[Rfam]
RNA: Bacterial large subunit ribosomal RNA, nucleotides 1313 to 1693
RNA sequence: GAAAAAACAGGUGAAAAACCUGUUCGCCGUAAACCCAAGGUUUCCUGGGUAAAGUUAAUCUUCCCAGGGUUAGUCGGCCCCUAAGGCGAGGCUGAAAAGCGUAGUUGAUGGGAAACGGGUUAAUAUUCCCGUACCUGCAUAUGUUCGUUUGAACGAUGGGGGGACGCAGGAAGGUAGGUCAUCCGGGUGUUGGAUAUCCCGGUGCAAGCUGGUAGGGAUGAAACGUAGGCAAAUCCGCGUUUCUUUAUCCCGAGAAGUGAUGCCGUGUCGUAAGACUGAAGUGACUGAGCCUCGACUGCCGAGAAAAGCCUCUAAGUGAGAAUAUGUGCAGACCGUACUGUAAACCGACACAGGUGGGUGGGGUGAGUAACCCAAGGCGUU
Numbered sequence: 001g002a003a004a005a006a007a008c009a010g011g012u013g014a015a016a017a018a019c020c021u022g023u024u025c026g027c028c029g030u031a032a033a034c035c036c037a038a039g040g041u042u043u044c045c046u047g048g049g050u051a052a053a054g055u056u057a058a059u060c061u062u063c064c065c066a067g068g069g070u071u072a073g074u075c076g077g078c079c080c081c082u083a084a085g086g087c088g089a090g091g092c093u094g095a096a097a098a099g100c101g102u103a104g105u106u107g108a109u110g111g112g113a114a115a116c117g118g119g120u121u122a123a124u125a126u127u128c129c130c131g132u133a134c135c136u137g138c139a140u141a142u143g144u145u146c147g148u149u150u151g152a153a154c155g156a157u158g159g160g161g162g163g164a165c166g167c168a169g170g171a172a173g174g175u176a177g178g179u180c181a182u183c184c185g186g187g188u189g190u191u192g193g194a195u196a197u198c199c200c201g202g203u204g205c206a207a208g209c210u211g212g213u214a215g216g217g218a219u220g221a222a223a224c225g226u227a228g229g230c231a232a233a234u235c236c237g238c239g240u241u242u243c244u245u246u247a248u249c250c251c252g253a254g255a256a257g258u259g260a261u262g263c264c265g266u267g268u269c270g271u272a273a274g275a276c277u278g279a280a281g282u283g284a285c286u287g288a289g290c291c292u293c294g295a296c297u298g299c300c301g302a303g304a305a306a307a308g309c310c311u312c313u314a315a316g317u318g319a320g321a322a323u324a325u326g327u328g329c330a331g332a333c334c335g336u337a338c339u340g341u342a343a344a345c346c347g348a349c350a351c352a353g354g355u356g357g358g359u360g361g362g363g364u365g366a367g368u369a370a371c372c373c374a375a376g377g378c379g380u381u
Stems, first nucleotide, its partner, number of pairs: 006024006025379004033359004039339002044068006053061002075335003080111002085106003089102001091100003115132005135331011153317002158312004166299004172292003177286005183202005204263002208258003215251003220243007228236002266278001267276003345354002361373004